mir-8364 microRNA precursor family: a 61-nucleotide RNA sequence from Pristionchus pacificus. Gene Ontology terms of the family: miRNA-mediated post-transcriptional gene silencing and RISC complex.
[Rfam]
RNA sequence: UUUUCAUUCCACGUGCUCUCUCUCCGGUCAGACAGGCUAGAGAGUGUGUGAAAUGAAGAGA
Numbered sequence: 001u002u003u004u005c006a007u008u009c010c011a012c013g014u015g016c017u018c019u020c021u022c023u024c025c026g027g028u029c030a031g032a033c034a035g036g037c038u039a040g041a042g043a044g045u046g047u048g049u050g051a052a053a054u055g056a057a058g059a060g061a
Base pairs, nucleotide, nucleotide: 001059002058003057004056005055006054007053010050012048013047014046015045016044017043019041020040021039
Lineage of the source: Eukaryota > Opisthokonta > Protostomia > Ecdysozoa > Pristionchus.